[Rfam]
RNA sequence: GGGUGUUCGUUUUCAGAGGCGGGCAGGUAUCGUAGCGUUGGUCGGGCCGCCAGCG
Numbered sequence: 001g002g003g004u005g006u007u008c009g010u011u012u013u014c015a016g017a018g019g020c021g022g023g024c025a026g027g028u029a030u031c032g033u034a035g036c037g038u039u040g041g042u043c044g045g046g047c048c049g050c051c052a053g054c055g
Stems, first nucleotide, its partner, number of pairs: 005024008036055007
This 55-nucleotide sequence from Novosphingobium barchaimii belongs to the Rfam family "nhaA-I RNA". From the family's description: Acidobacteria, Alphaproteobacteria, Betaproteobacteria and Gammaproteobacteria, Verrucomicrobia, cand. division NC10. Pairs were carried over by alignment from the consensus structure, which is taken from published work. It is annotated as a riboswitch.